[Rfam]
RNA sequence: UCACGAACAGGGCAAACCAUUUGAAAAAAUGGGACGCAAAGCUUCCGGCCUAACAGGGUGUGAAUCGAAAUGUUUUCACUCUCAUGGUAGCGGGGUUACCGAU
Numbered sequence: 001u002c003a004c005g006a007a008c009a010g011g012g013c014a015a016a017c018c019a020u021u022u023g024a025a026a027a028a029a030u031g032g033g034a035c036g037c038a039a040a041g042c043u044u045c046c047g048g049c050c051u052a053a054c055a056g057g058g059u060g061u062g063a064a065u066c067g068a069a070a071u072g073u074u075u076u077c078a079c080u081c082u083c084a085u086g087g088u089a090g091c092g093g094g095g096u097u098a099c100c101g102a103u
Stems, first nucleotide, its partner, number of pairs: 012037002017032006040097004045093003048088003055082006
Shown here is a 103-nucleotide RNA from Photobacterium jeanii, a member of the family "c-di-GMP-I riboswitch aptamer". The organism belongs to Photobacterium, within Bacteria. A search with the family's covariance model found it, with a score of 76 bits.